A member of the RNA family "tRNA" from Sulfurospirillum deleyianum, 82 nucleotides long. For this family Rfam cites "The tertiary structure of tRNA and the development of the genetic code" (Hou, Trends Biochem Sci, 1993). NCBI's taxonomy places the organism under Bacteria, Pseudomonadati, Sulfurospirillaceae, Sulfurospirillum, Sulfurospirillum deleyianum. About the family: Transfer RNA (tRNA) molecules are approximately 80 nucleotides in length. Pairs were carried over by alignment from the consensus structure, which is taken from published work. It scores 56 bits against the family's covariance model. By type it is a transfer RNA.
[Rfam]
RNA sequence: GCGGUCGUGGUGGAACGGUAGACACGCUACCUUGAGGUGGUAGUGCCUUACGGGUGUGGGGGUUCAAAUCCCCCCGACCGCA
Number, nucleotide and partner (000 for none) at each position: 001g081002c080003g079004g078005u077006c076007g075008u000009g000010g025011u024012g023013g000014a000015a000016c000017g000018g000019u000020a000021g000022a000023c012024a011025c010026g000027c043028u042029a041030c040031c039032u000033u000034g000035a000036g000037g000038u000039g031040g030041u029042a028043g027044u000045g000046c000047c000048u000049u000050a000051c000052g000053g000054g000055u000056g000057u000058g074059g073060g072061g071062g070063u000064u000065c000066a000067a000068a000069u000070c062071c061072c060073c059074c058075c007076g006077a005078c004079c003080g002081c001082a000